[Rfam]
RNA sequence: GAUCACAGUGAUGGCUGACCAGGGCUCCCUGACCUAUAGACCUCUGCUAUGGGGGUGAUGGCCAGCCCUGGUGUCUGAGUGAUU
Numbered sequence: 001g002a003u004c005a006c007a008g009u010g011a012u013g014g015c016u017g018a019c020c021a022g023g024g025c026u027c028c029c030u031g032a033c034c035u036a037u038a039g040a041c042c043u044c045u046g047c048u049a050u051g052g053g054g055g056u057g058a059u060g061g062c063c064a065g066c067c068c069u070g071g072u073g074u075c076u077g078a079g080u081g082a083u084u
Stems, first nucleotide, its partner, number of pairs: 001084006010075003018072009027061002030058001032056004037051002039048001041046001